RNA sequence: ACGACAGAUCGCGGGGGUCCGGUGAACCGGGCUGAGAUUGCGGCUGAGACGGCUGCUGACCGCUGGAACCUGACCGGGUAAUGCCGGCGUAGGGAGAGAUCGAGUCGUCAUGAC
Numbered sequence: 001a002c003g004a005c006a007g008a009u010c011g012c013g014g015g016g017g018u019c020c021g022g023u024g025a026a027c028c029g030g031g032c033u034g035a036g037a038u039u040g041c042g043g044c045u046g047a048g049a050c051g052g053c054u055g056c057u058g059a060c061c062g063c064u065g066g067a068a069c070c071u072g073a074c075c076g077g078g079u080a081a082u083g084c085c086g087g088c089g090u091a092g093g094g095a096g097a098g099a100u101c102g103a104g105u106c107g108u109c110a111u112g113a114c
Stems, first nucleotide, its partner, number of pairs: 007101004011063004016057001017032005040056007069093004074087004
RNA: TPP riboswitch aptamer (THI element)
Organism: Spongiactinospora gelatinilytica